[Rfam]
RNA sequence: AUCCCGAAUACAAUGAUGCCUUUUUUCCAAGCAAUGUCUGAAUACACUGUGAACAAAACCAUUCUGAGUUUCUGGGUU
Numbered sequence: 001a002u003c004c005c006g007a008a009u010a011c012a013a014u015g016a017u018g019c020c021u022u023u024u025u026u027c028c029a030a031g032c033a034a035u036g037u038c039u040g041a042a043u044a045c046a047c048u049g050u051g052a053a054c055a056a057a058a059c060c061a062u063u064c065u066g067a068g069u070u071u072c073u074g075g076g077u078u
Base pairs, nucleotide, nucleotide: 001078003076004075005074006073008071010069011068
Small nucleolar RNA SNORD121A: a 78-nucleotide RNA sequence from Hymenochirus boettgeri. By type it is a C/D-box small nucleolar RNA. For this family Rfam cites "snoSeeker: an advanced computational package for screening of guide and orphan snoRNA genes in the human genome" (Yang et al., Nucleic Acids Res, 2006). The family's consensus secondary structure was predicted with WAR.